RNA sequence: UCAAUCCUUCGGGGCAGGGUGUAAUUCCCGACCGGCGGUGAUGGUACCUUGAUUACCUCAGUCCGUGACCCGCUUAUGCGGUUGACCUGGUGAAACUCUGGGACCGACAGUAUAGUCUGGAUGGGAGAAGGAUGAC
Numbered sequence: 001u002c003a004a005u006c007c008u009u010c011g012g013g014g015c016a017g018g019g020u021g022u023a024a025u026u027c028c029c030g031a032c033c034g035g036c037g038g039u040g041a042u043g044g045u046a047c048c049u050u051g052a053u054u055a056c057c058u059c060a061g062u063c064c065g066u067g068a069c070c071c072g073c074u075u076a077u078g079c080g081g082u083u084g085a086c087c088u089g090g091u092g093a094a095a096c097u098c099u100g101g102g103a104c105c106g107a108c109a110g111u112a113u114a115g116u117c118u119g120g121a122u123g124g125g126a127g128a129a130g131g132a133u134g135a136c
Stems, first nucleotide, its partner, number of pairs: 004133007017029003031116002033106002035066004061104002070081002086102005108119003
RNA: FMN riboswitch aptamer (RFN element)
Organism: Marininema mesophilum